[Rfam]
The record is a 59-nucleotide RNA from Monodelphis domestica, which matches "mir-7386 microRNA precursor family" in Rfam. The organism belongs to Monodelphis, within Eukaryota. Rfam links the family to the GO terms miRNA-mediated post-transcriptional gene silencing and RISC complex.
RNA sequence: UGUUAGAUAAGGUAAUCUAUUUUGUGGAUUCUUCUAAAAUAAGGACCUCAUCCAUAGAG
Numbered sequence: 001u002g003u004u005a006g007a008u009a010a011g012g013u014a015a016u017c018u019a020u021u022u023u024g025u026g027g028a029u030u031c032u033u034c035u036a037a038a039a040u041a042a043g044g045a046c047c048u049c050a051u052c053c054a055u056a057g058a059g
Stems, first nucleotide, its partner, number of pairs: 004054001006052003010048003018041007026034001